Rfam assigns this 372-nucleotide RNA sequence from Pontivivens insulae to the family "Bacterial RNase P class A". A search with the family's covariance model found it, with a score of 288 bits. Lineage of the source: Bacteria > Pseudomonadota > Alphaproteobacteria > Rhodobacterales > Pontivivens. Ribonuclease P (RNase P) is a ubiquitous endoribonuclease, found in archaea, bacteria and eukarya as well as chloroplasts and mitochondria. Its best characterised activity is the generation of mature 5'-ends of tRNAs by cleaving the 5'-leader elements of precursor-tRNAs.

RNA sequence: GCGGAUGGCUGGAUGAUCGCGCCGGGAAAUCGGUGAGGAAAGUCCGGACUCCUUGAAGCGACGGCGCCGGAUAACGUCCGGCCAGGGCAACCUGAGGGAAAGCGCCACAGAAAUCAGACCUCCCGGCGACGGGGAAGGGUGAAACGGUGGAGUAAGAGACCACCGCCGGGCUGGCAACAGACCGGGCACGGCAAGCCCCGCCGGGAGCAAGGCCAAAUAGGGAUCGCGCGCCUUUCGGGGCAUGGCUGCUUCACCACAGCGAUCCGGGUUGGCUGCGUGAGGCGUUGCGCAAGCAACGUCCCAGACGAAUGGUCAUCCAUGGGAUUCGAUGGAAUCCCGGGACAAAAUCCGGCUUACAGGCCAUCCGCACAG
Numbered sequence: 001g002c003g004g005a006u007g008g009c010u011g012g013a014u015g016a017u018c019g020c021g022c023c024g025g026g027a028a029a030u031c032g033g034u035g036a037g038g039a040a041a042g043u044c045c046g047g048a049c050u051c052c053u054u055g056a057a058g059c060g061a062c063g064g065c066g067c068c069g070g071a072u073a074a075c076g077u078c079c080g081g082c083c084a085g086g087g088c089a090a091c092c093u094g095a096g097g098g099a100a101a102g103c104g105c106c107a108c109a110g111a112a113a114u115c116a117g118a119c120c121u122c123c124c125g126g127c128g129a130c131g132g133g134g135a136a137g138g139g140u141g142a143a144a145c146g147g148u149g150g151a152g153u154a155a156g157a158g159a160c161c162a163c164c165g166c167c168g169g170g171c172u173g174g175c176a177a178c179a180g181a182c183c184g185g186g187c188a189c190g191g192c193a194a195g196c197c198c199c200g201c202c203g204g205g206a207g208c209a210a211g212g213c214c215a216a217a218u219a220g221g222g223a224u225c226g227c228g229c230g231c232c233u234u235u236c237g238g239g240g241c242a243u244g245g246c247u248g249c250u251u252c253a254c255c256a257c258a259g260c261g262a263u264c265c266g267g268g269u270u271g272g273c274u275g276c277g278u279g280a281g282g283c284g285u286u287g288c289g290c291a292a293g294c295a296a297c298g299u300c301c302c303a304g305a306c307g308a309a310u311g312g313u314c315a316u317c318c319a320u321g322g323g324a325u326u327c328g329a330u331g332g333a334a335u336c337c338c339g340g341g342a343c344a345a346a347a348u349c350c351g352g353c354u355u356a357c358a359g360g361c362c363a364u365c366c367g368c369a370c371a372g
Base pairs, nucleotide, nucleotide: 001368002367003366004365005364006363007362008361009360010359011357012317013316014315015314016313017312018311020035021034022033023032024031025030040355041354042353044352045351046350047349048348049207050206051205052204057251058250062203063202064201065200066199067081068080069079070078071077082096083094084093085092086091097198098197102196103195104192105191106190119138120137121134122133123132124131125130146164147163148162149161150160165187166185167184168183169182171180172179173178211274212273213272214271221265222264223263224262225261226260243256244255245254281300282299283298284297285296286295287294288293